[Rfam]
RNA sequence: UCCGCCACGGACGGCGGUGAUACUAAUCAGCAGCAAGUUUUUCGCUAGAAAAACUUGACACGAAUAUUGUACAAGGAAGUACAAUGUUCGUGUUUC
Numbered sequence: 001u002c003c004g005c006c007a008c009g010g011a012c013g014g015c016g017g018u019g020a021u022a023c024u025a026a027u028c029a030g031c032a033g034c035a036a037g038u039u040u041u042u043c044g045c046u047a048g049a050a051a052a053a054c055u056u057g058a059c060a061c062g063a064a065u066a067u068u069g070u071a072c073a074a075g076g077a078a079g080u081a082c083a084a085u086g087u088u089c090g091u092g093u094u095u096c
Stems, first nucleotide, its partner, number of pairs: 002017005034057010059092014
RNA: TD-2 RNA